[Rfam]
RNA sequence: UAUGCUAUACUAAUCAACGUUGUUGAUAAAUUCAAUGACCCUUGGGGCUUGCUCACUUUACCCAAGCAUAUUUUAAGCUUUUUCGCUAAAGGAGAAUUUUAUG
Dot-bracket structure: ..................((((((((.....)))))))).((((((......[..[[[..)))))).........(((......))).]]]..].........
This 103-nucleotide RNA sequence from Streptococcus suis belongs to the Rfam family "PreQ1-II (pre queuosine) riboswitch aptamer".
On this family, see Meyer et al., RNA 2008: "Confirmation of a second natural preQ1 aptamer class in Streptococcaceae bacteria".